[Rfam]
Nucleotides: 086
Stems, first nucleotide, its partner, number of pairs: 001084003005080002009076004014071001017068003021064001025059004032053006
Number, partner (000 for none) and nucleotide at each position: 001084u002083u003082g004000a005080a006079g007000a008000a009076u010075u011074u012073g013000a014071a015000g016000a017068c018067u019066u020000c021064a022000a023000c024000u025059u026058g027057u028056a029000u030000a031000c032053u033052u034051g035050a036049a037048g038000g039000a040000u041000u042000u043000g044000a045000a046000c047000a048037c049036u050035u051034c052033a053032a054000c055000u056028u057027g058026c059025a060000g061000a062000c063000u064021u065000a066019a067018a068017g069000a070000a071014u072000a073012u074011g075010a076009a077000g078000a079006u080005u081000c082003c083002a084001a085000c086000u
Rfam assigns this 86-nucleotide RNA sequence from Solanum commersonii to the family "MIR8024 microRNA precursor family".
The family's consensus secondary structure was predicted with RNAalifold.
The match comes from Rfam's covariance-model search (82 bits).
The family has 2 seed sequences and 661 matches in Rfam 15.1.
The organism belongs to Solanum, within Eukaryota.
Rfam links the family to the GO terms RISC complex and miRNA-mediated post-transcriptional gene silencing.